[Rfam]
RNA sequence: UGCAGAUGAUGUGAGAGAAUAUUUGCUAUCUGAAUGGCGGUGCGGACGUCCCCAACCACCAAGAUCGCUGAUGCA
Numbered sequence: 001u002g003c004a005g006a007u008g009a010u011g012u013g014a015g016a017g018a019a020u021a022u023u024u025g026c027u028a029u030c031u032g033a034a035u036g037g038c039g040g041u042g043c044g045g046a047c048g049u050c051c052c053c054a055a056c057c058a059c060c061a062a063g064a065u066c067g068c069u070g071a072u073g074c075a
Base pairs, nucleotide, nucleotide: 001075002074003073004072